[Rfam]
RNA sequence: AGCAAAGUGAUGAAGUCCUAAUAUCUGAAUAUGAUGUGGAUUUCUUAGUUCAUAUGGUCUUCAAAGUUCUCUGAUUGCU
Numbered sequence: 001a002g003c004a005a006a007g008u009g010a011u012g013a014a015g016u017c018c019u020a021a022u023a024u025c026u027g028a029a030u031a032u033g034a035u036g037u038g039g040a041u042u043u044c045u046u047a048g049u050u051c052a053u054a055u056g057g058u059c060u061u062c063a064a065a066g067u068u069c070u071c072u073g074a075u076u077g078c079u
Stems, first nucleotide, its partner, number of pairs: 001079005
Notes:
A member of the RNA family "Small nucleolar RNA R160" from Glycine max, 79 nucleotides long. The organism belongs to Glycine subgen. Soja, within Eukaryota. The base pairs follow the family's consensus structure. The match comes from Rfam's covariance-model search (74 bits). snoR160 is a C/D box small nucleolar RNA, which acts as a methylation guide for 25S ribosomal RNA in plants. snoR160 has been alternatively named snoZ270 in rice. Its family is annotated with nucleolus and RNA processing in the Gene Ontology.